[Rfam]
RNA sequence: AAGAGCCUUGAGCCAAUAAAGACUGAGAAAGUUGUAUCAAGAAUAA
Numbered sequence: 001a002a003g004a005g006c007c008u009u010g011a012g013c014c015a016a017u018a019a020a021g022a023c024u025g026a027g028a029a030a031g032u033u034g035u036a037u038c039a040a041g042a043a044u045a046a
Stems, first nucleotide, its partner, number of pairs: 007041002010038002014034004
A member of the RNA family "Plastid-rpl16 group II-D1 intron" from Malus domestica, 46 nucleotides long. Its family is annotated with Group II intron splicing in the Gene Ontology. Rfam's curators write: Plastid-rpl16 is a non-coding RNA (ncRNA) recognised in plastids. The organism belongs to Malus, within Eukaryota. For this family Rfam cites "Retrograde signaling in plants: A critical review focusing on the GUN pathway and beyond" (Richter et al., Plant Commun, 2023).